[Rfam]
Nucleotides: 082
Stems, first nucleotide, its partner, number of pairs: 001080002004077008013068003017064019
Number, partner (000 for none) and nucleotide at each position: 001080c002079c003000u004077u005076g006075c007074a008073c009072g010071a011070a012000u013068u014067u015066c016000g017064u018063g019062u020061a021060u022059c023058g024057g025056g026055c027054c028053u029052c030051u031050a032049g033048u034047c035046c036000u037000u038000u039000u040000a041000u042000a043000a044000a045000u046035g047034g048033a049032c050031u051030a052029g053028a054027g055026g056025c057024c058023c059022g060021g061020u062019g063018c064017a065000u066015g067014a068013a069000a070011u071010u072009u073008g074007u075006g076005c077004a078000u079002g080001g081000g082000g